Rfam assigns this 135-nucleotide RNA sequence from Sapayoa aenigma to the family "Small nucleolar RNA SNORA58". Clan: SNORA44 clan. Rfam links the family to the GO terms RNA processing and nucleolus. On this family, see Huttenhofer et al., EMBO J 2001: "RNomics: an experimental approach that identifies 201 candidates for novel, small, non-messenger RNAs in mouse". About the family: ACA52 is a member of the H/ACA class of snoRNA that guide the sites of modification of uridines to pseudouridines. By type it is an H/ACA-box small nucleolar RNA.
RNA sequence: CUGCAUACCAGUAGACCUUAUCUGGUUCUUCUAAUAGCCAGAUCAGGGGGAUGGUGCAUGCUACAAAAACCUGGGGCUGCUGUGGGUCAUGAUCAGCCUGAGUGUGGCUGAUUGAACUGCAGUACUCUGACAUUU
Number, nucleotide and partner (000 for none) at each position: 001c000002u000003g061004c060005a059006u058007a000008c056009c000010a000011g000012u000013a000014g000015a000016c047017c046018u045019u000020a043021u042022c041023u040024g039025g000026u000027u000028c000029u000030u000031c000032u000033a000034a000035u000036a000037g000038c000039c024040a023041g022042a021043u020044c000045a018046g017047g016048g000049g000050g000051a000052u000053g000054g000055u000056g008057c000058a006059u005060g004061c003062u000063a000064c000065a000066a000067a000068a000069a000070c000071c000072u000073g128074g127075g126076g125077c000078u124079g000080c000081u121082g120083u119084g000085g000086g000087u000088c000089a000090u000091g000092a000093u111094c110095a109096g108097c107098c000099u000100g000101a000102g000103u000104g000105u000106g000107g097108c096109u095110g094111a093112u000113u000114g000115a000116a000117c000118u000119g083120c082121a081122g000123u000124a078125c076126u075127c074128u073129g000130a000131c000132a000133u000134u000135u000